[Rfam]
Overview
Ribosomal protein L20 leader: a 131-nucleotide sequence from Neobacillus mesonae. Rfam describes the family as follows. This family is a putative r-protein leader autoregulatory structure found in B. subtilis and other low-GC Gram-positive bacteria. It is located in the 5' untranslated regions of mRNAs encoding initiation factor 3 followed by ribosomal proteins L35 and L20 (infC-rpmI-rplT). A Rho-independent transcription terminator structure that is probably involved in regulation is included at the 3' end. The base pairs follow the family's consensus structure, which was predicted with CMfinder. It scores 81 bits against the family's covariance model.

RNA sequence: GGGGAAAAGAAGAAGCACCCGCUUCUCACCUGAUUGACGCUAUAUAAAGCAGUUGCCAGGUUUAACAUGGACUUUUAGUUUUUAACUAUGUUCGUAAGUGUGGGUGCAUUCAUCCGCACUUUUUUAUUUGC
Numbered sequence: 001g002g003g004g005a006a007a008a009g010a011a012g013a014a015g016c017a018c019c020c021g022c023u024u025c026u027c028a029c030c031u032g033a034u035u036g037a038c039g040c041u042a043u044a045u046a047a048a049g050c051a052g053u054u055g056c057c058a059g060g061u062u063u064a065a066c067a068u069g070g071a072c073u074u075u076u077a078g079u080u081u082u083u084a085a086c087u088a089u090g091u092u093c094g095u096a097a098g099u100g101u102g103g104g105u106g107c108a109u110u111c112a113u114c115c116g117c118a119c120u121u122u123u124u125u126a127u128u129u130g131c
Stems, first nucleotide, its partner, number of pairs: 011026006028061003036054003039050002099118008